[Rfam]
RNA sequence: GGAAGUGUGUGCUAGUGAUGGCACAGCUGAACAUUGAUCGCUAAACGUCGAGAUAUGGCAGAUCUGCUCAGUGGGUGUUGUCACGUGGUCGCUUCAAGUAGCUUGUGUUCGGCUCCCGAUUGCGCGUGCAUGUUCGUGGUUUUCUUCCAAAACCUCGGAUAUGCACGCCUGCACGGUUGAGUCUUCACGUCGCUCCUCGAACUACCGCGAUUUCCAAAUUGGGGGGCAAUCGAAUAGGUCAGACGAGGUAAUUUGUCGCUUCCAUAUACAGGCACUGCGGAAAAGCAGUAUGCCAUUUUUUUUU
Numbered sequence: 001g002g003a004a005g006u007g008u009g010u011g012c013u014a015g016u017g018a019u020g021g022c023a024c025a026g027c028u029g030a031a032c033a034u035u036g037a038u039c040g041c042u043a044a045a046c047g048u049c050g051a052g053a054u055a056u057g058g059c060a061g062a063u064c065u066g067c068u069c070a071g072u073g074g075g076u077g078u079u080g081u082c083a084c085g086u087g088g089u090c091g092c093u094u095c096a097a098g099u100a101g102c103u104u105g106u107g108u109u110c111g112g113c114u115c116c117c118g119a120u121u122g123c124g125c126g127u128g129c130a131u132g133u134u135c136g137u138g139g140u141u142u143u144c145u146u147c148c149a150a151a152a153c154c155u156c157g158g159a160u161a162u163g164c165a166c167g168c169c170u171g172c173a174c175g176g177u178u179g180a181g182u183c184u185u186c187a188c189g190u191c192g193c194u195c196c197u198c199g200a201a202c203u204a205c206c207g208c209g210a211u212u213u214c215c216a217a218a219u220u221g222g223g224g225g226g227c228a229a230u231c232g233a234a235u236a237g238g239u240c241a242g243a244c245g246a247g248g249u250a251a252u253u254u255g256u257c258g259c260u261u262c263c264a265u266a267u268a269c270a271g272g273c274a275c276u277g278c279g280g281a282a283a284a285g286c287a288g289u290a291u292g293c294c295a296u297u298u299u300u301u302u303u304u
Stems, first nucleotide, its partner, number of pairs: 001263007015084005027071003032066002036064004040059004271294003274289005